[Rfam]
RNA: glmS glucosamine-6-phosphate activated ribozyme aptamer
Organism: Neobacillus rhizophilus
RNA sequence: UGUUUUACAAAAGCGCCAGAACUAGCCGAAAGAGGGUUUGGCUAGUUGACGAGGUGGAGGAUUAUCGAAAUGUUCGGCGGAUACCUCCCGGUUGAAACGCACAACCGUCAAUUUCUUCCUUAAAACACGGAGGCAACUCGGUGCACAAAGGGGAGAAAAUGCACAUAC
Numbered sequence: 001u002g003u004u005u006u007a008c009a010a011a012a013g014c015g016c017c018a019g020a021a022c023u024a025g026c027c028g029a030a031a032g033a034g035g036g037u038u039u040g041g042c043u044a045g046u047u048g049a050c051g052a053g054g055u056g057g058a059g060g061a062u063u064a065u066c067g068a069a070a071u072g073u074u075c076g077g078c079g080g081a082u083a084c085c086u087c088c089c090g091g092u093u094g095a096a097a098c099g100c101a102c103a104a105c106c107g108u109c110a111a112u113u114u115c116u117u118c119c120u121u122a123a124a125a126c127a128c129g130g131a132g133g134c135a136a137c138u139c140g141g142u143g144c145a146c147a148a149a150g151g152g153g154a155g156a157a158a159a160u161g162c163a164c165a166u167a168c
Stems, first nucleotide, its partner, number of pairs: 020047008029038001056088005065077004089107006112158007126143003130139003